[Rfam]
RNA sequence: AAUUCGCGUUAGGGAUUGCAGCGACAUCCUUUUGUUUUUAUUUUUAAAGUUUAGUUGAGACUAAAAACAAAAGAUAUAGUGGAAAGCCCGACAGUUU
Numbered sequence: 001a002a003u004u005c006g007c008g009u010u011a012g013g014g015a016u017u018g019c020a021g022c023g024a025c026a027u028c029c030u031u032u033u034g035u036u037u038u039u040a041u042u043u044u045u046a047a048a049g050u051u052u053a054g055u056u057g058a059g060a061c062u063a064a065a066a067a068c069a070a071a072a073g074a075u076a077u078a079g080u081g082g083a084a085a086g087c088c089c090g091a092c093a094g095u096u097u
Stems, first nucleotide, its partner, number of pairs: 012089003016085002021080002026075003032070008
Dot-bracket structure: ...........(((.((...((...(((...((((((((.......................))))))))..)))...))...)).)))........

The record is a 97-nucleotide sequence from Tenacibaculum lutimaris, which matches "Flavo-1 RNA" in Rfam. The family's consensus secondary structure is taken from published work. Taxonomically the source falls in Tenacibaculum (Bacteria, Pseudomonadati, Flavobacteriia, Flavobacteriaceae).